[Rfam]
RNA sequence: UGCUUACCGAUGAUGUUGAAAAAUAAAUGUCUGAACAAUUGACUUCAGUAUGAUAUCAGUAAUUUCUCUGAGGUAAGCG
Numbered sequence: 001u002g003c004u005u006a007c008c009g010a011u012g013a014u015g016u017u018g019a020a021a022a023a024u025a026a027a028u029g030u031c032u033g034a035a036c037a038a039u040u041g042a043c044u045u046c047a048g049u050a051u052g053a054u055a056u057c058a059g060u061a062a063u064u065u066c067u068c069u070g071a072g073g074u075a076a077g078c079g
Base pairs, nucleotide, nucleotide: 002078003077004076005075006074007073008072

Source information: Shown here is a 79-nucleotide RNA from Cottoperca gobio, a member of the family "Small nucleolar RNA SNORD72". Pairs were carried over by alignment from the consensus structure. On this family, see Huttenhofer et al., EMBO J 2001: "RNomics: an experimental approach that identifies 201 candidates for novel, small, non-messenger RNAs in mouse". Rfam classes the family as a C/D-box small nucleolar RNA. About the family: snoRNA HBII-240 belongs to the CD family of snoRNAs. NCBI's taxonomy places the organism under Eukaryota, Eumetazoa, Percomorphaceae, Bovichtidae, Cottoperca. Its family is annotated with nucleolus and RNA processing in the Gene Ontology.